[Rfam]
RNA sequence: AUACUUACUUGGCAGGGGAGAUACCAUGAUCAUAAAGGUGGUUUUCCCAGGGCGAGGCUUAUCCAUUGCACUCCGGAUGUGCUGACCCGUGCGAUUUCCCCAAAUGUGGGAAACUCGAUUGCAUAAUUUUAA
Dot-bracket structure: ...........((((((((((.(((((..........)))))))))))(.((.(.(((.(((((..........))))).)))..))).).((((((.((.......)).))).))).))))..........
Numbered sequence: 001a002u003a004c005u006u007a008c009u010u011g012g013c014a015g016g017g018g019a020g021a022u023a024c025c026a027u028g029a030u031c032a033u034a035a036a037g038g039u040g041g042u043u044u045u046c047c048c049a050g051g052g053c054g055a056g057g058c059u060u061a062u063c064c065a066u067u068g069c070a071c072u073c074c075g076g077a078u079g080u081g082c083u084g085a086c087c088c089g090u091g092c093g094a095u096u097u098c099c100c101c102a103a104a105u106g107u108g109g110g111a112a113a114c115u116c117g118a119u120u121g122c123a124u125a126a127u128u129u130u131a132a
Stems, first nucleotide, its partner, number of pairs: 012122004016048006023042005049090001051088002054086001056083003060079005092117003095113003099109002
Overview: A member of the RNA family "U1 spliceosomal RNA" from Myotis lucifugus, 132 nucleotides long. Rfam describes the family as follows. U1 is a small nuclear RNA (snRNA) component of the spliceosome (involved in pre-mRNA splicing). Clan: U1 clan. It is annotated as a spliceosomal small nuclear RNA. It scores 116 bits against the family's covariance model.